Rfam assigns this 75-nucleotide sequence from Streptomyces clavuligerus to the family "ASpks TB sRNA". The family's consensus secondary structure is taken from published work. A search with the family's covariance model found it, with a score of 86 bits.
RNA sequence: CUUCAGCGAACCCAGCCACAACGGCCGACCCGCCGAACGCCCCUGACCGUAAGCCGCCAGCAACGCCUGCGCCUC
Numbered sequence: 001c002u003u004c005a006g007c008g009a010a011c012c013c014a015g016c017c018a019c020a021a022c023g024g025c026c027g028a029c030c031c032g033c034c035g036a037a038c039g040c041c042c043c044u045g046a047c048c049g050u051a052a053g054c055c056g057c058c059a060g061c062a063a064c065g066c067c068u069g070c071g072c073c074u075c
Stems, first nucleotide, its partner, number of pairs: 015025003031071003038065002043060003047056001049054001